The record is a 58-nucleotide RNA from Streptomyces uncialis, which matches "msiK RNA" in Rfam. Lineage of the source: Bacteria > Actinomycetota > Actinomycetes > Streptomycetaceae > Streptomyces. The match comes from Rfam's covariance-model search (52 bits). By type it is a cis-regulatory element.

RNA sequence: GGAUCACCUUCUUUACUCGGAUCGUCCGGCACGUUCCUGCCGGUGAAGGGGGCUUCAC
Number, nucleotide and partner (000 for none) at each position: 001g000002g000003a000004u000005c000006a000007c000008c000009u050010u049011c048012u047013u046014u045015a044016c000017u000018c000019g000020g000021a000022u000023c000024g000025u000026c043027c042028g041029g040030c039031a038032c000033g000034u000035u000036c000037c000038u031039g030040c029041c028042g027043g026044u015045g014046a013047a012048g011049g010050g009051g000052g000053c000054u000055u000056c000057a000058c000